[Rfam]
A member of the RNA family "Gag/pol translational readthrough site" from Moschus moschiferus, 58 nucleotides long. The family's consensus secondary structure is taken from published work. A search with the family's covariance model found it, with a score of 70 bits. Rfam classes the family as a cis-regulatory element. On this family, see ten Dam et al., Virus Genes 1990: "RNA pseudoknots: translational frameshifting and readthrough on viral RNAs". Its family is annotated with viral translational readthrough in the Gene Ontology.
RNA sequence: GAAGUCAGGGCCAGGAGCCCCCCCCUGAGCCUAGGAUAACUCUCGAUGUUGGGGGGCA
Numbered sequence: 001g002a003a004g005u006c007a008g009g010g011c012c013a014g015g016a017g018c019c020c021c022c023c024c025c026u027g028a029g030c031c032u033a034g035g036a037u038a039a040c041u042c043u044c045g046a047u048g049u050u051g052g053g054g055g056g057c058a
Stems, first nucleotide, its partner, number of pairs: 004037003008032004012027004018056006